[Rfam]
RNA sequence: GGAUAACACUGUUUUGCUAUUUCCGACCAAUAACACAAUGACACAUAGAAAAGUUAUCCUACGUGUCAUUGCGUUAUUAGUCGAGGAUAGCAAAAAAAGAUAUCC
Number, nucleotide and partner (000 for none) at each position: 001g000002g104003a103004u102005a101006a000007c000008a000009c000010u000011g000012u095013u094014u093015u092016g091017c090018u089019a088020u087021u000022u085023c000024c083025g082026a081027c080028c000029a078030a077031u076032a075033a074034c073035a000036c071037a070038a069039u068040g067041a066042c065043a064044c063045a000046u061047a060048g059049a000050a057051a000052a000053g000054u000055u000056a000057u050058c000059c048060u047061a046062c000063g044064u043065g042066u041067c040068a039069u038070u037071g036072c000073g034074u033075u032076a031077u030078u029079a000080g027081u026082c025083g024084a000085g022086g000087a020088u019089a018090g017091c016092a015093a014094a013095a012096a000097a000098a000099g000100a000101u005102a004103u003104c002105c000

The family of this 105-nucleotide RNA from Prunus persica is "MIR6274 microRNA precursor family". The match comes from Rfam's covariance-model search (89 bits). Pairs were carried over by alignment from the consensus structure, which was predicted with RNAalifold. Taxonomically the source falls in Prunus (Eukaryota, Viridiplantae, Magnoliopsida, Rosaceae).